Rfam assigns this 137-nucleotide RNA from Choiromyces venosus to the family "U4 spliceosomal RNA". The match comes from Rfam's covariance-model search (92 bits). Its Rfam clan is "U4 clan". It is annotated as a spliceosomal small nuclear RNA. The literature on the family includes a 2000 paper in Mol Cell by Vidovic et al., "Crystal structure of the spliceosomal 15.5kD protein bound to a U4 snRNA fragment". U4 small nuclear RNA (U4 snRNA) is a component of the major U2-dependent spliceosome.

[Rfam]
RNA sequence: AUCUGUGUGCACGGGCAAGAUCAGUAGCAGUGAAGACUUGUCUGAGCUCUGAUUUUUGCUAGUUGAAAACUACAACUACAUUGACGCUCCUGGCCUGCUUCGGUGGGUCGGGGAAUUUCUGGAAAUUACCGCGAUGU
Numbered sequence: 001a002u003c004u005g006u007g008u009g010c011a012c013g014g015g016c017a018a019g020a021u022c023a024g025u026a027g028c029a030g031u032g033a034a035g036a037c038u039u040g041u042c043u044g045a046g047c048u049c050u051g052a053u054u055u056u057u058g059c060u061a062g063u064u065g066a067a068a069a070c071u072a073c074a075a076c077u078a079c080a081u082u083g084a085c086g087c088u089c090c091u092g093g094c095c096u097g098c099u100u101c102g103g104u105g106g107g108u109c110g111g112g113g114a115a116u117u118u119c120u121g122g123a124a125a126u127u128a129c130c131g132c133g134a135u136g137u
Base pairs, nucleotide, nucleotide: 020053021052022051023050024049026048027047028046034043035042036041088113089112090111091110092109093108094107095106096105097104098103128137129136